ZMP/ZTP riboswitch aptamer (pfl RNA motif): a 78-nucleotide RNA sequence from Varibaculum cambriense.
The match comes from Rfam's covariance-model search (48 bits).
Taxonomically the source falls in Varibaculum cambriense (Bacteria, Bacillati, Actinomycetota, Varibaculum).
Pairs were carried over by alignment from the consensus structure, which is taken from published work.
RNA sequence: GGGCGUAACCGUGACUGGCGUAGGUGGGAUACCACCGGGGAACAAGUGGUCAAUCAGUCGCUCGCCUGGGCUGAUUUG
Numbered sequence: 001g002g003g004c005g006u007a008a009c010c011g012u013g014a015c016u017g018g019c020g021u022a023g024g025u026g027g028g029a030u031a032c033c034a035c036c037g038g039g040g041a042a043c044a045a046g047u048g049g050u051c052a053a054u055c056a057g058u059c060g061c062u063c064g065c066c067u068g069g070g071c072u073g074a075u076u077u078g
Stems, first nucleotide, its partner, number of pairs: 003047002006044001011043002015039002017066004024035004055073005